This 85-nucleotide RNA sequence from an Alicyclobacillaceae bacterium belongs to the Rfam family "c-di-GMP-I riboswitch aptamer". About the family: GEMM was predicted in a large-scale screen for bacterial structured RNA regulatory elements.
RNA sequence: AGUGAAUAUGGGCAAACGCAUCGAAAGUUGCGGGCGCAAAGCCACGGGUCUAACGACGAAAGUCUAUGGCGGCCGGGUUGCAGAC
Number, nucleotide and partner (000 for none) at each position: 001a000002g000003u000004g000005a000006a000007u000008a000009u000010g000011g000012g037013c036014a000015a000016a000017c032018g031019c030020a029021u000022c027023g000024a000025a000026a000027g022028u000029u020030g019031c018032g017033g000034g000035c000036g013037c012038a000039a000040a079041g078042c077043c076044a000045c075046g074047g073048g070049u069050c068051u000052a000053a000054c000055g064056a063057c062058g000059a000060a000061a000062g057063u056064c055065u000066a000067u000068g050069g049070c048071g000072g000073c047074c046075g045076g043077g042078u041079u040080g000081c000082a000083g000084a000085c000